[Rfam]
RNA sequence: ACACUCACCUGGCAGGGGAGACACUGUGCUCAGGAAGGUGGUCUUCCCAGGAUGAGGCUCAUCCCCUGCACUCUGGGUGUGCUGACCCCUGGAAUUUCCCCAGAUAUGGGAAACUCGACUGUGCCAUUUGUGGUAGUGGGGGACCUGCUUUCCCAU
Numbered sequence: 001a002c003a004c005u006c007a008c009c010u011g012g013c014a015g016g017g018g019a020g021a022c023a024c025u026g027u028g029c030u031c032a033g034g035a036a037g038g039u040g041g042u043c044u045u046c047c048c049a050g051g052a053u054g055a056g057g058c059u060c061a062u063c064c065c066c067u068g069c070a071c072u073c074u075g076g077g078u079g080u081g082c083u084g085a086c087c088c089c090u091g092g093a094a095u096u097u098c099c100c101c102a103g104a105u106a107u108g109g110g111a112a113a114c115u116c117g118a119c120u121g122u123g124c125c126a127u128u129u130g131u132g133g134u135a136g137u138g139g140g141g142g143a144c145c146u147g148c149u150u151u152c153c154c155a156u
Stems, first nucleotide, its partner, number of pairs: 012122004016048005023042005049090003054086001056083003060079005094115001095113003099109002147156001

The record is a 156-nucleotide RNA from Meleagris gallopavo, which matches "U1 spliceosomal RNA" in Rfam. Rfam classes the family as a spliceosomal small nuclear RNA. It scores 96 bits against the family's covariance model. U1 is a small nuclear RNA (snRNA) component of the spliceosome (involved in pre-mRNA splicing). Its 5' end forms complementary base pairs with the 5' splice junction, thus defining the 5' donor site of an intron. There are significant differences in sequence and secondary structure between metazoan and yeast U1 snRNAs, the latter being much longer (568 nucleotides as compared to 164 nucleotides in human). Nevertheless, secondary structure predictions suggest that all U1 snRNAs share a 'common core' consisting of helices I, II, the proximal region of III, and IV. This family does not contain the larger yeast sequences.